[Rfam]
RNA sequence: CCUGACGUCGAGCCUCGCGGACAACACCUGCGCACGGAGUUUUGUUCGUUCGGCUCGCGUUAAGC
Numbered sequence: 001c002c003u004g005a006c007g008u009c010g011a012g013c014c015u016c017g018c019g020g021a022c023a024a025c026a027c028c029u030g031c032g033c034a035c036g037g038a039g040u041u042u043u044g045u046u047c048g049u050u051c052g053g054c055u056c057g058c059g060u061u062a063a064g065c
Stems, first nucleotide, its partner, number of pairs: 001064001003062001005060003009057006018048002021045004026040002
Dot-bracket structure: (.(.(((.((((((...((.((((.((...........)).)))).))...))))))))).).).
mir-375 microRNA precursor family: a 65-nucleotide RNA from Scleropages formosus. Gene Ontology terms of the family: RISC complex and miRNA-mediated post-transcriptional gene silencing. The match comes from Rfam's covariance-model search (66 bits). The family has 47 seed sequences and 824 matches in Rfam 15.1. On this family, see Chen et al., Genes Dev 2005: "The developmental miRNA profiles of zebrafish as determined by small RNA cloning".